The family of this 76-nucleotide sequence from Nocardioides sp. AX2bis is "ZMP/ZTP riboswitch aptamer (pfl RNA motif)". The family's consensus secondary structure is taken from published work. Its family is annotated with one-carbon metabolic process and regulation of purine nucleotide biosynthetic process in the Gene Ontology.
[Rfam]
RNA sequence: CUGGUCGCACACGACUGGCGCAGGUGGGUCACCACCGGGGAGUGAGGUCGGGGCAUCGUUCGCCUGGGUGCCCCGG
Numbered sequence: 001c002u003g004g005u006c007g008c009a010c011a012c013g014a015c016u017g018g019c020g021c022a023g024g025u026g027g028g029u030c031a032c033c034a035c036c037g038g039g040g041a042g043u044g045a046g047g048u049c050g051g052g053g054c055a056u057c058g059u060u061c062g063c064c065u066g067g068g069u070g071c072c073c074c075g076g
Base pairs, nucleotide, nucleotide: 003049004048005047008046010044011043012042015039016038017064018063019062020061024035025034026033027032053071054070055069056068057067
A search with the family's covariance model found it, with a score of 46 bits. NCBI's taxonomy places the organism under Bacteria, Actinomycetota, Actinomycetes, Nocardioidaceae, Nocardioides.